[Rfam]
RNA sequence: CGAAUCCAAAGGCACACUUAUCGAAAGAUAAGGCCGCAAAACCAUUGGGGCUACCAUGUAAUUUGUCCCAUAUUCGCGCCGAGAACCGCCGGUUGUGAAUAUGGGAUGCAACCGUAUUACGUCAUGCCAGCCAGGUCGCCGAA
Number, nucleotide and partner (000 for none) at each position: 001c000002g000003a000004a000005u000006c000007c000008a000009a000010a000011g000012g037013c036014a000015c000016a000017c032018u031019u030020a029021u028022c027023g000024a000025a000026a000027g022028a021029u020030a019031a018032g017033g000034c000035c000036g013037c012038a000039a000040a000041a136042c135043c134044a000045u000046u133047g132048g131049g128050g127051c126052u000053a000054c000055c000056a122057u121058g120059u119060a118061a117062u116063u000064u000065g000066u000067c000068c000069c000070a000071u000072a000073u000074u000075c000076g000077c000078g000079c000080c000081g000082a000083g000084a000085a000086c000087c000088g000089c000090c000091g000092g000093u000094u000095g000096u000097g000098a000099a000100u000101a000102u000103g000104g000105g000106a000107u000108g000109c000110a000111a000112c000113c000114g000115u000116a062117u061118u060119a059120c058121g057122u056123c000124a000125u000126g051127c050128c049129a000130g000131c048132c047133a046134g043135g042136u041137c000138g000139c000140c000141g000142a000143a000
About this RNA:
This 143-nucleotide sequence from Paenibacillus oceani belongs to the Rfam family "c-di-GMP-I riboswitch aptamer". On this family, see Weinberg et al., Nucleic Acids Res 2007: "Identification of 22 candidate structured RNAs in bacteria using the CMfinder comparative genomics pipeline". The family has 155 seed sequences and 5,092 matches in Rfam 15.1. The organism belongs to Paenibacillus, within Bacteria. Gene Ontology term of the family: cyclic-di-GMP binding.